Small nucleolar RNA SNORA22: a 133-nucleotide RNA sequence from Nannospalax galili. By type it is an H/ACA-box small nucleolar RNA. The base pairs follow the family's consensus structure, which was predicted with RNAfold. Rfam describes the family as follows. ACA22 is a member of the H/ACA class of snoRNA that guide the sites of modification of uridines to pseudouridines. The match comes from Rfam's covariance-model search (128 bits).

RNA sequence: UUGCACAGUGAACACCCAAGUGUACUUUAUAGUAUUCUUGGCCUUGACUCUGUGUCAGAGUAAAGUCUGCUCUUUUCCUCUACAUUGAAAGGAGUGCUGCCCUUUUAAAUGUAUUCAGAAAAUGAGUACAUUA
Numbered sequence: 001u002u003g004c005a006c007a008g009u010g011a012a013c014a015c016c017c018a019a020g021u022g023u024a025c026u027u028u029a030u031a032g033u034a035u036u037c038u039u040g041g042c043c044u045u046g047a048c049u050c051u052g053u054g055u056c057a058g059a060g061u062a063a064a065g066u067c068u069g070c071u072c073u074u075u076u077c078c079u080c081u082a083c084a085u086u087g088a089a090a091g092g093a094g095u096g097c098u099g100c101c102c103u104u105u106u107a108a109a110u111g112u113a114u115u116c117a118g119a120a121a122a123u124g125a126g127u128a129c130a131u132u133a
Stems, first nucleotide, its partner, number of pairs: 003055006010049001013046002016041005022035001024033003057073006079119003083111004087106006